[Rfam]
Shown here is a 105-nucleotide RNA from Halorhodospira halophila, a member of the family "Guanidine-I riboswitch aptamer".
The sequence is in the family's curated seed alignment.
NCBI's taxonomy places the organism under Bacteria, Pseudomonadati, Pseudomonadota, Halorhodospira, Halorhodospira halophila.
This family represents a conserved RNA structure found upstream of the ykkC and yxkD genes in Bacillus subtilis and related genes in other bacteria.
RNA sequence: GCAAUAGGCGUCUAGGGUUCCGUCCGCAGGCAUGCGGAGCCUGGUCCGAGAGUCGCCGACCUCUCCCAGAGGGGGGUUACACGGAGGGACAAAAGCCCGGGAGAU
Numbered sequence: 001g002c003a004a005u006a007g008g009c010g011u012c013u014a015g016g017g018u019u020c021c022g023u024c025c026g027c028a029g030g031c032a033u034g035c036g037g038a039g040c041c042u043g044g045u046c047c048g049a050g051a052g053u054c055g056c057c058g059a060c061c062u063c064u065c066c067c068a069g070a071g072g073g074g075g076g077u078u079a080c081a082c083g084g085a086g087g088g089a090c091a092a093a094a095g096c097c098c099g100g101g102a103g104a105u
Stems, first nucleotide, its partner, number of pairs: 007057004012052001015047002020044002022041001023038006058078008080100001082103001086098003